The family of this 87-nucleotide RNA from Aegilops tauschii is "MIR1120/MIR1122 microRNA precursor family". Rfam links the family to the GO terms miRNA-mediated post-transcriptional gene silencing and RISC complex. The literature on the family includes a 2007 paper in Genome Biol by Yao et al., "Cloning and characterization of microRNAs from wheat (Triticum aestivum L.)". The base pairs follow the family's consensus structure, which was predicted with RNAalifold. The organism belongs to Aegilops tauschii, within Eukaryota.

RNA sequence: GUAGUCCCUCCGUCCCACAAUAUAAGAAUGUUUUUGACAUUAGUGUAGUGUAAAAAACGUUCUUAUAUUAUGGGACGGAGGGAGUAG
Numbered sequence: 001g002u003a004g005u006c007c008c009u010c011c012g013u014c015c016c017a018c019a020a021u022a023u024a025a026g027a028a029u030g031u032u033u034u035u036g037a038c039a040u041u042a043g044u045g046u047a048g049u050g051u052a053a054a055a056a057a058c059g060u061u062c063u064u065a066u067a068u069u070a071u072g073g074g075a076c077g078g079a080g081g082g083a084g085u086a087g
Stems, first nucleotide, its partner, number of pairs: 003085001005083001007081005013075005019069017037051005
Record summary
A search with the family's covariance model found it, with a score of 91 bits.